[Rfam]
RNA sequence: CCGCAUCCGCCAAUCGGUUCAGCCGUGUCGCGGAAGGUUUUUGUCAAACCAACUAAUGCGCUCCCAAGGAGCGCCGAGGUCCCGCG
Numbered sequence: 001c002c003g004c005a006u007c008c009g010c011c012a013a014u015c016g017g018u019u020c021a022g023c024c025g026u027g028u029c030g031c032g033g034a035a036g037g038u039u040u041u042u043g044u045c046a047a048a049c050c051a052a053c054u055a056a057u058g059c060g061c062u063c064c065c066a067a068g069g070a071g072c073g074c075c076g077a078g079g080u081c082c083c084g085c086g
Base pairs, nucleotide, nucleotide: 002086003085004084006034007033008032009031010030015025016024017023018022036050037049038048039047052080053079054078058074059073060072061071062070063069064068